[Rfam]
RNA sequence: UGUAAGAAAACCAAACCUGCUGCGAAGCAGGGACGGAAAGCCACGGGUCUUAAUAAGAUAGCCGAGUUGCCAUGA
Numbered sequence: 001u002g003u004a005a006g007a008a009a010a011c012c013a014a015a016c017c018u019g020c021u022g023c024g025a026a027g028c029a030g031g032g033a034c035g036g037a038a039a040g041c042c043a044c045g046g047g048u049c050u051u052a053a054u055a056a057g058a059u060a061g062c063c064g065a066g067u068u069g070c071c072a073u074g075a
Stems, first nucleotide, its partner, number of pairs: 001075001003072001011036002016031006034061001039068003044064003047059003

Annotation: c-di-GMP-I-GGC riboswitch aptamer: a 75-nucleotide RNA from Desulfopila aestuarii. Gene Ontology term of the family: cyclic-di-GMP binding.